Description: This 87-nucleotide RNA sequence from Nannospalax galili belongs to the Rfam family "Small nucleolar RNA SNORD111". The match comes from Rfam's covariance-model search (93 bits). By type it is a C/D-box small nucleolar RNA. The base pairs follow the family's consensus structure, which was predicted with RNAalifold.
[Rfam]
RNA sequence: CAGCCUGAAGUGAUGACUCUUAUUUCAUGUCUCUUCUCUGACAUUUUUCAGUGGAGAUGAUUUUUGCCUACUGAUCUGAUCAGGCUG
Numbered sequence: 001c002a003g004c005c006u007g008a009a010g011u012g013a014u015g016a017c018u019c020u021u022a023u024u025u026c027a028u029g030u031c032u033c034u035u036c037u038c039u040g041a042c043a044u045u046u047u048u049c050a051g052u053g054g055a056g057a058u059g060a061u062u063u064u065u066g067c068c069u070a071c072u073g074a075u076c077u078g079a080u081c082a083g084g085c086u087g
Stems, first nucleotide, its partner, number of pairs: 001087005